Shown here is a 140-nucleotide RNA sequence from Mediterraneibacter hominis, a member of the family "FMN riboswitch aptamer (RFN element)". Pairs were carried over by alignment from the consensus structure, which is taken from published work. Gene Ontology term of the family: FMN binding. The source organism's lineage runs through Bacteria, Bacillati, Bacillota, Clostridia and Mediterraneibacter.
RNA sequence: AAAAUUCUUCGGGGUCGGGUGUAAGUCCCAACCGGCGGUAAAGUCCGCGACCUGCCUUAUAUAGGCGGCUGAACCGGUGACACAGCAGAAUGUUGUGAAUUCCGGUACCGACAGUAAAGUCUGGAUGAGAGAAGAAAUUG
Numbered sequence: 001a002a003a004a005u006u007c008u009u010c011g012g013g014g015u016c017g018g019g020u021g022u023a024a025g026u027c028c029c030a031a032c033c034g035g036c037g038g039u040a041a042a043g044u045c046c047g048c049g050a051c052c053u054g055c056c057u058u059a060u061a062u063a064g065g066c067g068g069c070u071g072a073a074c075c076g077g078u079g080a081c082a083c084a085g086c087a088g089a090a091u092g093u094u095g096u097g098a099a100u101u102c103c104g105g106u107a108c109c110g111a112c113a114g115u116a117a118a119g120u121c122u123g124g125a126u127g128a129g130a131g132a133a134g135a136a137a138u139u140g
Base pairs, nucleotide, nucleotide: 003138005136006135007134008133009132010131017029018028019027031120032119033110034109035048036047037046038045043108044107052068053067073106074105075104076103077102112123113122114121